[Rfam]
Nucleotides: 074
Base pairs, nucleotide, nucleotide: 003072004071006069009066010065012063013062015060016059017058018057019056020055023052024051025050027048028047030045031044032043033042034041
Number, partner (000 for none) and nucleotide at each position: 001000g002000g003072g004071g005000g006069g007000g008000g009066g010065g011000c012063g013062g014000a015060g016059u017058c018057c019056c020055u021000c022000a023052g024051u025050c026000c027048g028047g029000a030045u031044u032043g033042u034041g035000a036000g037000a038000g039000g040000g041034c042033a043032c044031a045030g046000g047028c048027c049000a050025g051024g052023c053000c054000a055020a056019g057018g058017g059016a060015c061000c062013c063012c064000a065010c066009u067000g068000g069006u070000g071004u072003c073000u074000g